The family of this 178-nucleotide RNA sequence from Acaryochloris thomasi is "Antisense RNA which regulates isiA expression". The source organism's lineage runs through Bacteria, Bacillati, Acaryochloridales, Acaryochloridaceae and Acaryochloris thomasi. Rfam 15.1 lists 3,397 matches to the family in 659 species. It scores 90 bits against the family's covariance model.
Nucleotides: 178
Base pairs, nucleotide, nucleotide: 136175137174138173139172140171141170144169148165
Number, partner (000 for none) and nucleotide at each position: 001000a002000a003000u004000a005000g006000c007000c008000a009000a010000a011000g012000a013000u014000c015000g016000u017000g018000g019000c020000u021000g022000g023000a024000u025000u026000u027000a028000g029000g030000g031000u032000u033000g034000g035000g036000u037000u038000g039000u040000c041000a042000a043000u044000a045000g046000u047000a048000u049000g050000g051000a052000c053000u054000g055000u056000c057000c058000c059000c060000a061000c062000g063000g064000u065000c066000g067000g068000a069000u070000c071000a072000u073000a074000g075000a076000u077000g078000c079000c080000g081000c082000c083000c084000c085000a086000g087000g088000u089000g090000g091000u092000g093000g094000c095000c096000u097000u098000g099000a100000g101000a102000a103000c104000a105000a106000a107000g108000a109000g110000c111000a112000a113000a114000g115000c116000c117000g118000c119000g120000a121000c122000c123000c124000c125000g126000a127000g128000a129000a130000a131000g132000a133000u134000a135000a136175g137174g138173u139172g140171g141170u142000g143000g144169c145000c146000a147000a148165g149000a150000a151000u152000u153000a154000a155000g156000c157000c158000u159000a160000a161000u162000u163000g164000u165148c166000g167000a168000u169144g170141a171140u172139c173138g174137u175136u176000c177000c178000a